[Rfam]
Record summary: This 190-nucleotide sequence from Pseudomonas panipatensis belongs to the Rfam family "Pseudomonas sRNA P27". The family's consensus secondary structure was predicted with WAR. Lineage of the source: Bacteria > Gammaproteobacteria > Pseudomonadales > Pseudomonadaceae > Pseudomonas.

RNA sequence: CGGGUUUACUCCUGGAUGUUACCGAUUCGUCCAGCCGGAGCCGGACGGCGUUUUGGUGUCUGAUUCGGUUAACGAAUCGGGAGCACCAUCUGCGUAGGCUUGUGGUUUAAGGCUUGCGCCGCCUACGGUCUUGGAUAGCCCCCGCCAGGCAGGGACCCCAAUACCUGCGGGCAGUGGGACCAGCCCACUA
Number, nucleotide and partner (000 for none) at each position: 001c000002g158003g157004g156005u155006u154007u153008a000009c000010u000011c149012c148013u147014g146015g000016a000017u000018g000019u000020u000021a000022c000023c050024g049025a000026u000027u000028c047029g046030u045031c044032c043033a000034g041035c040036c000037g000038g000039a000040g035041c034042c000043g032044g031045a030046c029047g028048g000049c024050g023051u000052u000053u000054u088055g087056g086057u085058g084059u083060c080061u079062g078063a077064u076065u075066c074067g000068g000069u000070u000071a000072a000073c000074g066075a065076a064077u063078c062079g061080g060081g000082a000083g059084c058085a057086c056087c055088a054089u000090c000091u000092g145093c144094g143095u000096a000097g140098g139099c138100u137101u000102g000103u000104g000105g136106u135107u134108u133109a132110a131111g130112g129113c128114u127115u000116g000117c000118g000119c000120c000121g000122c000123c000124u000125a000126c000127g114128g113129u112130c111131u110132u109133g108134g107135a106136u105137a100138g099139c098140c097141c000142c000143c094144g093145c092146c014147a013148g012149g011150c000151a000152g000153g007154g006155a005156c004157c003158c002159c000160a000161a000162u000163a000164c000165c000166u000167g000168c000169g000170g000171g000172c000173a189174g188175u187176g186177g185178g184179a000180c000181c000182a000183g000184c178185c177186c176187a175188c174189u173190a000

It is annotated as a small RNA. The literature on the family includes a 2006 paper in Nucleic Acids Res by Livny et al., "Identification of 17 Pseudomonas aeruginosa sRNAs and prediction of sRNA-encoding genes in 10 diverse pathogens using the bioinformatic tool sRNAPredict2".